[Rfam]
Shown here is a 526-nucleotide part of an RNA from Catagonus wagneri, a member of the family "Eukaryotic small subunit ribosomal RNA". It scores 1098 bits against the family's covariance model. For this family Rfam cites "The comparative RNA web (CRW) site: an online database of comparative sequence and structure information for ribosomal, intron, and other RNAs" (Cannone et al., BMC Bioinformatics, 2002). Taxonomically the source falls in Catagonus (Eukaryota, Vertebrata, Eutheria, Boreoeutheria).
RNA sequence: UACGUGGUUGAUCCUGCCAAUAGCAUAUGCUUGUCUCAAAGAUUAAGCCAUGCAUGUGUAAGUACGCAUGGCCGGUAUAGUGAAACUGCGAAUGGCUCAUUAAAUCCGUUUUGGUUCCUUUGGUCGCUCGCUCCUGUCCUACUUGGGUUACUGUGGUAAUUCUAGAGCUAAUACAUGCUGACGGGCGCUGACCCCUUUCGCGGGGGGGGGAUGCGUGCAGUUAUCAGAUCAAAACCAACACGGUCAUCCUUGCCCUGGCUGGGGGGGGUGGGCGCCGGUGGCUUUGUUGACUCCAGAUAACCUCGGGCCGAUCGUAGGCCACCUGUGGUGGUGAUGACCCAUUUGAACGUCUGCCUUAUCAACUUUCAAUGGUAGUUGCCGUGCGUACCAUGGUGACCACGUGUGAUGGGGAAUCAGGGUUUGAUUCUGGAGAGGGAGCAUGAGAAACGGAGGAUCCAUUGGAGGGCAAGUCUGGUGCCAGCAGCCGUGGUAAUUCCAGCUCCAAUAGCGUAUAUUAAAGUUGCUG
Numbered sequence: 001u002a003c004g005u006g007g008u009u010g011a012u013c014c015u016g017c018c019a020a021u022a023g024c025a026u027a028u029g030c031u032u033g034u035c036u037c038a039a040a041g042a043u044u045a046a047g048c049c050a051u052g053c054a055u056g057u058g059u060a061a062g063u064a065c066g067c068a069u070g071g072c073c074g075g076u077a078u079a080g081u082g083a084a085a086c087u088g089c090g091a092a093u094g095g096c097u098c099a100u101u102a103a104a105u106c107c108g109u110u111u112u113g114g115u116u117c118c119u120u121u122g123g124u125c126g127c128u129c130g131c132u133c134c135u136g137u138c139c140u141a142c143u144u145g146g147g148u149u150a151c152u153g154u155g156g157u158a159a160u161u162c163u164a165g166a167g168c169u170a171a172u173a174c175a176u177g178c179u180g181a182c183g184g185g186c187g188c189u190g191a192c193c194c195c196u197u198u199c200g201c202g203g204g205g206g207g208g209g210g211a212u213g214c215g216u217g218c219a220g221u222u223a224u225c226a227g228a229u230c231a232a233a234a235c236c237a238a239c240a241c242g243g244u245c246a247u248c249c250u251u252g253c254c255c256u257g258g259c260u261g262g263g264g265g266g267g268g269u270g271g272g273c274g275c276c277g278g279u280g281g282c283u284u285u286g287u288u289g290a291c292u293c294c295a296g297a298u299a300a301c302c303u304c305g306g307g308c309c310g311a312u313c314g315u316a317g318g319c320c321a322c323c324u325g326u327g328g329u330g331g332u333g334a335u336g337a338c339c340c341a342u343u344u345g346a347a348c349g350u351c352u353g354c355c356u357u358a359u360c361a362a363c364u365u366u367c368a369a370u371g372g373u374a375g376u377u378g379c380c381g382u383g384c385g386u387a388c389c390a391u392g393g394u395g396a397c398c399a400c401g402u403g404u405g406a407u408g409g410g411g412a413a414u415c416a417g418g419g420u421u422u423g424a425u426u427c428u429g430g431a432g433a434g435g436g437a438g439c440a441u442g443a444g445a446a447a448c449g450g451a452g453g454a455u456c457c458a459u460u461g462g463a464g465g466g467c468a469a470g471u472c473u474g475g476u477g478c479c480a481g482c483a484g485c486c487g488u489g490g491u492a493a494u495u496c497c498a499g500c501u502c503c504a505a506u507a508g509c510g511u512a513u514a515u516u517a518a519a520g521u522u523g524c525u526g
Stems, first nucleotide, its partner, number of pairs: 005019004022516002025513007034445005041439001051437001053435001056089002061087003068081002096432003106353001108351001112347001115346002121341003142177001144175002151167002154164003185216004192209006221300005234288001236286002267276003312334004318329003355403001357401001362394003369391006407429004411422004459505006472499004481488002
Dot-bracket structure: ....((((.......))))..((.(((((((..(((((..(.........(.(..((...(((....((..........))...)))))......(((.......(.(...(..((....(((..................(.((.....((.(((.....))).))......)).).......((((...((((((......))))))...))))....(((((........(.((.............................(((....)))........)).).......)))))...........((((..(((......))).))))....)))...)))...).).(.(....(((....((((((...........)))))))))......).)...((((((((....))))...)))))))..).).).))))).............((((((.......((((.....((....)).......)))))))))).))))))).))..........